Shown here is a 139-nucleotide RNA sequence from Myotis lucifugus, a member of the family "U4 spliceosomal RNA". Clan: U4 clan. It scores 58 bits against the family's covariance model. For this family Rfam cites "The uRNA database" (Zwieb, Nucleic Acids Res, 1997).
RNA sequence: AGCUUUGCACAGUGGCAGUGUCAUAGCCAAUGAGUUUUAUCCAAGGCACGAUUAUUGCUAAUUGAAAAUUUAAUUUCUGUACAGUAAUUCUGUUUUGUGAACAUAGUGUUAUAUGUAUAUAUUUACUUAUUGAGGAGUG
Numbered sequence: 001a002g003c004u005u006u007g008c009a010c011a012g013u014g015g016c017a018g019u020g021u022c023a024u025a026g027c028c029a030a031u032g033a034g035u036u037u038u039a040u041c042c043a044a045g046g047c048a049c050g051a052u053u054a055u056u057g058c059u060a061a062u063u064g065a066a067a068a069u070u071u072a073a074u075u076u077c078u079g080u081a082c083a084g085u086a087a088u089u090c091u092g093u094u095u096u097g098u099g100a101a102c103a104u105a106g107u108g109u110u111a112u113a114u115g116u117a118u119a120u121a122u123u124u125a126c127u128u129a130u131u132g133a134g135g136a137g138u139g
Stems, first nucleotide, its partner, number of pairs: 020052003024048001026047003034042001085115002088111001091108004096103002128139004